RNA sequence: AGUGGCUCAUUCACCUUCUUAUGUCAGCCCCGCCAGUCGGACGUGCUACAUAAACCUACGAAUGACGCACAAAAAGGUGCCUGCCGUCCACCAUCUGAUAAUAGCGAGUUCGCUCCUUUAUCAGGCAUCGGGCGAAACGUUGAGUAAGGCACCGCCUG
Numbered sequence: 001a002g003u004g005g006c007u008c009a010u011u012c013a014c015c016u017u018c019u020u021a022u023g024u025c026a027g028c029c030c031c032g033c034c035a036g037u038c039g040g041a042c043g044u045g046c047u048a049c050a051u052a053a054a055c056c057u058a059c060g061a062a063u064g065a066c067g068c069a070c071a072a073a074a075a076g077g078u079g080c081c082u083g084c085c086g087u088c089c090a091c092c093a094u095c096u097g098a099u100a101a102u103a104g105c106g107a108g109u110u111c112g113c114u115c116c117u118u119u120a121u122c123a124g125g126c127a128u129c130g131g132g133c134g135a136a137a138c139g140u141u142g143a144g145u146a147a148g149g150c151a152c153c154g155c156c157u158g
Stems, first nucleotide, its partner, number of pairs: 005068002007065006019053006026047003076153007085134005096123006137145002
A member of the RNA family "Glm Y RNA activator of glmS mRNA" from Jejuibacter calystegiae, 158 nucleotides long. Taxonomically the source falls in Jejuibacter (Bacteria, Pseudomonadati, Pseudomonadota, Enterobacterales). This family consists of a number of bacterial RNA genes of around 167 bases in length. The tke1 RNA gene is present in Escherichia coli, Shigella flexneri, Yersinia pestis and Salmonella species where it is found between the yfhK and purL genes. The function of this RNA is unknown. On this family, see Rivas et al., Curr Biol 2001: "Computational identification of noncoding RNAs in E. coli by comparative genomics".